[Rfam]
A member of the RNA family "mir-156 microRNA precursor family" from Cynara cardunculus, 89 nucleotides long. Rfam links the family to the GO terms RISC complex and miRNA-mediated post-transcriptional gene silencing. Rfam's curators write: This family represents the plant microRNA (miRNA) precursor mir-156. Pairs were carried over by alignment from the consensus structure, which was predicted with PFOLD. The organism belongs to Cynara cardunculus subsp. cardunculus, within Eukaryota.
RNA sequence: CUGACAGAAGAGAGUGAGCACACGCAGGCAUUUGUAUAGAGAGACUAUACCCUUGUUCUUAUGCGUGUGCUCACUUCUCUUGCUGUCAG
Numbered sequence: 001c002u003g004a005c006a007g008a009a010g011a012g013a014g015u016g017a018g019c020a021c022a023c024g025c026a027g028g029c030a031u032u033u034g035u036a037u038a039g040a041g042a043g044a045c046u047a048u049a050c051c052c053u054u055g056u057u058c059u060u061a062u063g064c065g066u067g068u069g070c071u072c073a074c075u076u077c078u079c080u081u082g083c084u085g086u087c088a089g
Base pairs, nucleotide, nucleotide: 001089002088003087004086005085006084007083009081010079011078012077013075014074015073016072017071018070019069020068021067023065024064025063